[Rfam]
RNA sequence: GGGACGGGCCUUUCAGGCAUCCUCUCCUAAAGACUUUCAAGGCCGGCCCUUUUGGGUCGGCCCUUUUUUUGCCCGGC
Numbered sequence: 001g002g003g004a005c006g007g008g009c010c011u012u013u014c015a016g017g018c019a020u021c022c023u024c025u026c027c028u029a030a031a032g033a034c035u036u037u038c039a040a041g042g043c044c045g046g047c048c049c050u051u052u053u054g055g056g057u058c059g060g061c062c063c064u065u066u067u068u069u070u071g072c073c074c075g076g077c
Base pairs, nucleotide, nucleotide: 008018009017010016011015041062042061043060044059045058046057047056048055049054
The family of this 77-nucleotide sequence from Edaphosphingomonas laterariae is "Makes More Granules Regulator RNA (mmgR)".
Rfam links the family to the GO terms DNA-templated transcription, termination, response to nitrogen compound and protein binding.
NCBI's taxonomy places the organism under Bacteria, Alphaproteobacteria, Sphingomonadales, Rhizorhabdaceae, Edaphosphingomonas.
For this family Rfam cites "Regulation of Polyhydroxybutyrate Accumulation in Sinorhizobium meliloti by the Trans-Encoded Small RNA MmgR" (Lagares et al., J Bacteriol, 2017).